Notes: Shown here is a 90-nucleotide RNA sequence from Noviherbaspirillum galbum, a member of the family "Selenocysteine transfer RNA". The family's consensus secondary structure is taken from published work. The literature on the family includes a 2000 paper in FEBS Lett by Mizutani and Goto, "Eukaryotic selenocysteine tRNA has the 9/4 secondary structure".
RNA sequence: GGAGGUGCAUGAAGUCUGGUGGCUUCCCUGGUCUUCAAAACCAGCGGCCUGCUUCACGGCGGGCAGUGGGUUCGAUUCCCAUUCACCUCC
Numbered sequence: 001g002g003a004g005g006u007g008c009a010u011g012a013a014g015u016c017u018g019g020u021g022g023c024u025u026c027c028c029u030g031g032u033c034u035u036c037a038a039a040a041c042c043a044g045c046g047g048c049c050u051g052c053u054u055c056a057c058g059g060c061g062g063g064c065a066g067u068g069g070g071u072u073c074g075a076u077u078c079c080c081a082u083u084c085a086c087c088u089c090c
Stems, first nucleotide, its partner, number of pairs: 001090007009082001011026006028044005047064005067081004